[Rfam]
RNA sequence: UUAUAAGCAAAAGUUGGCUUUUUAGGUUCAUUCAAUAAAUGAUGUAUGUGGUCUAUAUAUAGACUACAUACAUCAUUUAUUGAAUGAAUCUAAAAAGUUAACUUUUGCUUAUAA
Number, nucleotide and partner (000 for none) at each position: 001u000002u113003a112004u111005a110006a109007g108008c000009a106010a105011a104012a103013g102014u000015u100016g099017g098018c097019u096020u095021u094022u093023u092024a091025g090026g000027u088028u087029c086030a085031u084032u083033c082034a081035a080036u079037a078038a077039a076040u075041g074042a073043u072044g071045u000046a000047u000048g000049u066050g065051g064052u063053c000054u000055a000056u000057a000058u000059a000060u000061a000062g000063a052064c051065u050066a049067c000068a000069u000070a000071c044072a043073u042074c041075a040076u039077u038078u037079a036080u035081u034082g033083a032084a031085u030086g029087a028088a027089u000090c025091u024092a023093a022094a021095a020096a019097g018098u017099u016100a015101a000102c013103u012104u011105u010106u009107g000108c007109u006110u005111a004112u003113a002114a000